The family of this 74-nucleotide RNA from Acrobeloides nanus is "mir-86 microRNA precursor family". A reference for the family is Lau et al. (2001), "An abundant class of tiny RNAs with probable regulatory roles in Caenorhabditis elegans", Science. The organism belongs to Acrobeloides, within Eukaryota.

RNA sequence: UUCCCGGCUAAGUGAAUGCUUUGCCACAGUCUUAAUUAGAGUAAGCUGGGGCUGAGGUUCGCUUAGGCUGGAUA
Numbered sequence: 001u002u003c004c005c006g007g008c009u010a011a012g013u014g015a016a017u018g019c020u021u022u023g024c025c026a027c028a029g030u031c032u033u034a035a036u037u038a039g040a041g042u043a044a045g046c047u048g049g050g051g052c053u054g055a056g057g058u059u060c061g062c063u064u065a066g067g068c069u070g071g072a073u074a
Stems, first nucleotide, its partner, number of pairs: 004071003009065009019056003023052003027048003